[Rfam]
Bacterial large subunit ribosomal RNA: a 260-nucleotide part of an RNA from Jatrophihabitans endophyticus. Rfam links the family to the GO terms ribosome and structural constituent of ribosome. The base pairs follow the family's consensus structure, which is taken from published work. The source organism's lineage runs through Bacteria, Actinomycetota, Jatrophihabitantales, Jatrophihabitantaceae and Jatrophihabitans.
RNA sequence: GGAGAUUUGAGAAGGGCUGUCCUUAGUACGAGAGGACCGGGACGGACGAACCUCUGGUGUGCCAGUUGUUCCACCAGGAGCACUGCUGGUUGGCUACGUUCGGAAGGGAUAACCGCUGAAAGCAUCUAAGCGGGAAGCUCGCUUCAAGAUGAGAUCUCCCAUCCUUUAUGGAGUAAGGCCCCCGGCUAGACCACCGGGUUGAUAGGCCAGAAGUGGAAGCGUGGUAACACGUGCAGCUGACUGGUACUAAUAGGCCGAGG
Numbered sequence: 001g002g003a004g005a006u007u008u009g010a011g012a013a014g015g016g017c018u019g020u021c022c023u024u025a026g027u028a029c030g031a032g033a034g035g036a037c038c039g040g041g042a043c044g045g046a047c048g049a050a051c052c053u054c055u056g057g058u059g060u061g062c063c064a065g066u067u068g069u070u071c072c073a074c075c076a077g078g079a080g081c082a083c084u085g086c087u088g089g090u091u092g093g094c095u096a097c098g099u100u101c102g103g104a105a106g107g108g109a110u111a112a113c114c115g116c117u118g119a120a121a122g123c124a125u126c127u128a129a130g131c132g133g134g135a136a137g138c139u140c141g142c143u144u145c146a147a148g149a150u151g152a153g154a155u156c157u158c159c160c161a162u163c164c165u166u167u168a169u170g171g172a173g174u175a176a177g178g179c180c181c182c183c184g185g186c187u188a189g190a191c192c193a194c195c196g197g198g199u200u201g202a203u204a205g206g207c208c209a210g211a212a213g214u215g216g217a218a219g220c221g222u223g224g225u226a227a228c229a230c231g232u233g234c235a236g237c238u239g240a241c242u243g244g245u246a247c248u249a250a251u252a253g254g255c256c257g258a259g260g
Stems, first nucleotide, its partner, number of pairs: 001159008011145004017045007047102005055096003062089005067082006106140003113133005162172003174258001177256004181198005203249003206245005212238002219232005